[Rfam]
RNA sequence: UUAGCAGAUGACGAUAAGCAAGACAGGGACUCUGCAGCGCUUCCGAGUCAAAUCGGGACGCGGAUGAUGCAUUCGUCUAGGGGAAUCUCUGAUGCUAA
Dot-bracket structure: .(((((......................................................................................))))).
Numbered sequence: 001u002u003a004g005c006a007g008a009u010g011a012c013g014a015u016a017a018g019c020a021a022g023a024c025a026g027g028g029a030c031u032c033u034g035c036a037g038c039g040c041u042u043c044c045g046a047g048u049c050a051a052a053u054c055g056g057g058a059c060g061c062g063g064a065u066g067a068u069g070c071a072u073u074c075g076u077c078u079a080g081g082g083g084a085a086u087c088u089c090u091g092a093u094g095c096u097a098a
Stems, first nucleotide, its partner, number of pairs: 002097005